[Rfam]
Rfam assigns this 131-nucleotide sequence from Conger conger to the family "Small Cajal body specific RNA 8".
Gene Ontology terms of the family: nucleolus, Cajal body and RNA processing.
Rfam's curators write: scaRNAs are a specific class of small nuclear RNAs which localise to the Cajal bodies and guide the modification of RNA polymerase II transcribed spliceosomal RNAs U1, U2, U4, U5 and U12. U92 belong to the H/ACA box class of guide RNAs as it has the predicted hairpin-hinge-hairpin-tail structure, conserved H/ACA-box motifs and is found associated with GAR1.
It is annotated as a small Cajal body RNA.
RNA sequence: GGGGAGGGUGAUACUUGGACAGCUCUGAGCAGUGGCCUGUCCAUCACUAACCCUCCCCAGAGCAUCCCUGCUUCACUUUGACUGGGGUGACAUGAGGGAAAUCACCACAGACAGAUACGGAGCAGACACUA
Numbered sequence: 001g002g003g004g005a006g007g008g009u010g011a012u013a014c015u016u017g018g019a020c021a022g023c024u025c026u027g028a029g030c031a032g033u034g035g036c037c038u039g040u041c042c043a044u045c046a047c048u049a050a051c052c053c054u055c056c057c058c059a060g061a062g063c064a065u066c067c068c069u070g071c072u073u074c075a076c077u078u079u080g081a082c083u084g085g086g087g088u089g090a091c092a093u094g095a096g097g098g099a100a101a102u103c104a105c106c107a108c109a110g111a112c113a114g115a116u117a118c119g120g121a122g123c124a125g126a127c128a129c130u131a
Stems, first nucleotide, its partner, number of pairs: 002057006016043003022037001024035002068125007082110003087105004